[Rfam]
RNA sequence: UGUUGGACGAAUUUUUUCGAUUCGUUUUCAAGGAUUCAGGCUUCUGGGGUGGGAAGUC
Numbered sequence: 001u002g003u004u005g006g007a008c009g010a011a012u013u014u015u016u017u018c019g020a021u022u023c024g025u026u027u028u029c030a031a032g033g034a035u036u037c038a039g040g041c042u043u044c045u046g047g048g049g050u051g052g053g054a055a056g057u058c
Stems, first nucleotide, its partner, number of pairs: 003031003006026006039058007